[Rfam]
The record is a 279-nucleotide RNA from Spodoptera exigua, which matches "Metazoan signal recognition particle RNA" in Rfam.
RNA sequence: ACUUGGACCGUGGCGUCUCCUGUAAUCCGGCUACUCGGAGGUCGGAAUCGGAGGAUUGUUUGAGGUCGGUGGUUCUGGUGCUAAGUGGCCUAUGUUGACUGGACGUCCACACUAAGCCUGGUAUUGAUAUGGAUCCCCGUUGGCGUCUGGGGGAUGCAGGUCUACUAAGGAGGGGCGCACCGGGCCAAAGUCCCCGUAUCGGGCAGUAGUGGAAGGUAGUAGUAGUAGGAAGUAGGUGCUCAGUAUCAGACCGACCAAUAAAAUUAGACCCGUUUCUGG
Numbered sequence: 001a002c003u004u005g006g007a008c009c010g011u012g013g014c015g016u017c018u019c020c021u022g023u024a025a026u027c028c029g030g031c032u033a034c035u036c037g038g039a040g041g042u043c044g045g046a047a048u049c050g051g052a053g054g055a056u057u058g059u060u061u062g063a064g065g066u067c068g069g070u071g072g073u074u075c076u077g078g079u080g081c082u083a084a085g086u087g088g089c090c091u092a093u094g095u096u097g098a099c100u101g102g103a104c105g106u107c108c109a110c111a112c113u114a115a116g117c118c119u120g121g122u123a124u125u126g127a128u129a130u131g132g133a134u135c136c137c138c139g140u141u142g143g144c145g146u147c148u149g150g151g152g153g154a155u156g157c158a159g160g161u162c163u164a165c166u167a168a169g170g171a172g173g174g175g176c177g178c179a180c181c182g183g184g185c186c187a188a189a190g191u192c193c194c195c196g197u198a199u200c201g202g203g204c205a206g207u208a209g210u211g212g213a214a215g216g217u218a219g220u221a222g223u224a225g226u227a228g229g230a231a232g233u234a235g236g237u238g239c240u241c242a243g244u245a246u247c248a249g250a251c252c253g254a255c256c257a258a259u260a261a262a263a264u265u266a267g268a269c270c271c272g273u274u275u276c277u278g279g
Stems, first nucleotide, its partner, number of pairs: 001042003005020003026039003044277004049272003056266001058264004064256007075249008084240004089236005095230001099229002102226001105223002107216002110211005116204009126162003130158002133155006139148001165169001172194005182186001

By type it is a non-coding RNA gene. The organism belongs to Spodoptera, within Eukaryota. The family has 91 seed sequences and 383,523 matches in Rfam 15.1. Rfam links the family to the GO terms signal recognition particle, endoplasmic reticulum targeting and SRP-dependent cotranslational protein targeting to membrane, signal sequence recognition.